RNA sequence: CUCGCCGAAAUAUCUUUAGGGAUAGCCUCGUAUUUAUCAUUGUGGUGGUAAAGCACUGACUGGGCUAGGGGCCUCACAAGGUUACCGAACUCAAUCAAACUCUGAAUGCCAUAAAUGACUGUACGGGAGUCAGACUGCGGGUGCUAAGAUUCGUAGUCGAGAGGGAAAGAACCCAGACCAACAGCUAAGGUCCCGAAGUGAUAGUUAAGUGGAAAAGGAAGUGGGGAAGCACUGACAGCCAGGAGGUUUGCUUAGAAGCAGCAAUCCUUUAAAGAAAGCGUAAUAGCUCACUGGUCAAGUAGCCCUGCACCGACAAUAUAACGGGGCUUAAACUAUCCACCGAAGCUUUGGAUGAAUUUAUUCAUGGUAGGCGAGCAUUCUGUAACUGUGAAGCGGUUCCGUAAGGUCCGUUGGAGUGAUCAGAAAAGACUUU
Numbered sequence: 001c002u003c004g005c006c007g008a009a010a011u012a013u014c015u016u017u018a019g020g021g022a023u024a025g026c027c028u029c030g031u032a033u034u035u036a037u038c039a040u041u042g043u044g045g046u047g048g049u050a051a052a053g054c055a056c057u058g059a060c061u062g063g064g065c066u067a068g069g070g071g072c073c074u075c076a077c078a079a080g081g082u083u084a085c086c087g088a089a090c091u092c093a094a095u096c097a098a099a100c101u102c103u104g105a106a107u108g109c110c111a112u113a114a115a116u117g118a119c120u121g122u123a124c125g126g127g128a129g130u131c132a133g134a135c136u137g138c139g140g141g142u143g144c145u146a147a148g149a150u151u152c153g154u155a156g157u158c159g160a161g162a163g164g165g166a167a168a169g170a171a172c173c174c175a176g177a178c179c180a181a182c183a184g185c186u187a188a189g190g191u192c193c194c195g196a197a198g199u200g201a202u203a204g205u206u207a208a209g210u211g212g213a214a215a216a217g218g219a220a221g222u223g224g225g226g227a228a229g230c231a232c233u234g235a236c237a238g239c240c241a242g243g244a245g246g247u248u249u250g251c252u253u254a255g256a257a258g259c260a261g262c263a264a265u266c267c268u269u270u271a272a273a274g275a276a277a278g279c280g281u282a283a284u285a286g287c288u289c290a291c292u293g294g295u296c297a298a299g300u301a302g303c304c305c306u307g308c309a310c311c312g313a314c315a316a317u318a319u320a321a322c323g324g325g326g327c328u329u330a331a332a333c334u335a336u337c338c339a340c341c342g343a344a345g346c347u348u349u350g351g352a353u354g355a356a357u358u359u360a361u362u363c364a365u366g367g368u369a370g371g372c373g374a375g376c377a378u379u380c381u382g383u384a385a386c387u388g389u390g391a392a393g394c395g396g397u398u399c400c401g402u403a404a405g406g407u408c409c410g411u412u413g414g415a416g417u418g419a420u421c422a423g424a425a426a427a428g429a430c431u432u433u
Stems, first nucleotide, its partner, number of pairs: 001375006011024005026129001027127007036120001037117001040114007051103001052101002057097003061093004068086002070083005133158010163174003178351004183347003189341003198338001200337006217311002221308006229300002238295005244268003249263003269273001274289001278287002352365005376428001378425005383419001385417002393412001396409001399406002
RNA: Bacterial large subunit ribosomal RNA, nucleotides 834 to 1266